[Rfam]
Nucleotides: 117
Stems, first nucleotide, its partner, number of pairs: 016032005078117001080115003089112002092109006
Number, partner (000 for none) and nucleotide at each position: 001000u002000a003000c004000g005000u006000u007000u008000u009000u010000c011000g012000c013000c014000c015000a016032g017031g018030c019029g020028g021000a022000g023000c024000u025000c026000g027000a028020c029019c030018g031017c032016c033000g034000u035000u036000u037000c038000a039000a040000g041000u042000c043000g044000u045000g046000a047000a048000g049000a050000a051000a052000u053000u054000c055000g056000u057000c058000g059000a060000c061000c062000a063000g064000u065000a066000c067000c068000g069000c070000c071000a072000u073000g074000c075000c076000u077000a078117c079000g080115g081114u082113g083000u084000c085000g086000a087000g088000c089112c090111g091000a092109u093108c094107u095106g096105c097104a098000g099000g100000g101000u102000g103000a104097u105096g106095c107094a108093g109092g110000g111090c112089g113082c114081g115080c116000a117078g
This 117-nucleotide sequence from Massilia sp. WF1 belongs to the Rfam family "ALIL pseudoknot". Pairs were carried over by alignment from the consensus structure, which is taken from published work.